[Rfam]
RNA sequence: UGUUGUCCAAGGCCCUUUUUCUGUUGUACUACUGUGAAAUCAGAUGAGCAGUGCAAUAUUAAAAGGGCAUUGGCUGACA
Numbered sequence: 001u002g003u004u005g006u007c008c009a010a011g012g013c014c015c016u017u018u019u020u021c022u023g024u025u026g027u028a029c030u031a032c033u034g035u036g037a038a039a040u041c042a043g044a045u046g047a048g049c050a051g052u053g054c055a056a057u058a059u060u061a062a063a064a065g066g067g068c069a070u071u072g073g074c075u076g077a078c079a
Stems, first nucleotide, its partner, number of pairs: 001079003005074001007073004012068008022058009

A member of the RNA family "mir-130 microRNA precursor family" from Channa argus, 79 nucleotides long. It scores 56 bits against the family's covariance model. Rfam 15.1 lists 2,580 matches to the family in 658 species. Pairs were carried over by alignment from the consensus structure, which was predicted with PFOLD.